The family of this 73-nucleotide RNA from Aliikangiella marina is "tRNA". It scores 57 bits against the family's covariance model.

RNA sequence: AGCACUUUAGCUCAAUUGGUAGAACCAUUGUCUUACAUACAAUAGGUCAUCCGUUCGACUCGGAUAAGUGCUA
Dot-bracket structure: (((((((..(.((........)).).(((((.......))))).....(((((.......)))))))))))).
The family's RNA type in Rfam is transfer RNA.